[Rfam]
RNA sequence: AACAGAGUAGGAGACAAAGCGUUAAGUGCUAAAAGGAUGGGAUGUUGCCUUUUGGACGAAGAACAUAAACAGUGUGUUGCUAGAAAGCAAAGGUUCUUACUUUGCUUAUCAUCAGAACAACACGUUCAGCUUUUUAAUGUUCGCGGUUUUGUUUUCGCAUUCGCUGCA
Number, nucleotide and partner (000 for none) at each position: 001a000002a000003c166004a165005g164006a000007g000008u000009a000010g156011g155012a154013g153014a152015c151016a150017a149018a148019g147020c145021g144022u143023u000024a000025a000026g057027u056028g000029c055030u054031a053032a052033a051034a050035g049036g048037a000038u000039g000040g162041g161042a160043u159044g158045u000046u000047g000048c036049c035050u034051u033052u032053u031054g030055g029056a027057c026058g000059a000060a000061g142062a141063a140064c139065a138066u137067a000068a000069a000070c000071a000072g000073u000074g000075u000076g000077u000078u000079g000080c000081u000082a000083g000084a000085a000086a000087g000088c000089a000090a000091a000092g000093g000094u000095u000096c000097u000098u000099a000100c000101u000102u000103u000104g000105c000106u000107u000108a000109u000110c000111a000112u000113c000114a000115g000116a000117a000118c000119a000120a000121c000122a000123c000124g000125u000126u000127c000128a000129g000130c000131u000132u000133u000134u000135u000136a000137a066138u065139g064140u063141u062142c061143g022144c021145g020146g000147u019148u018149u017150u016151g015152u014153u013154u012155u011156c010157g000158c044159a043160u042161u041162c040163g000164c005165u004166g003167c000168a000
RNA: THF (Tetrahydrofolate) riboswitch aptamer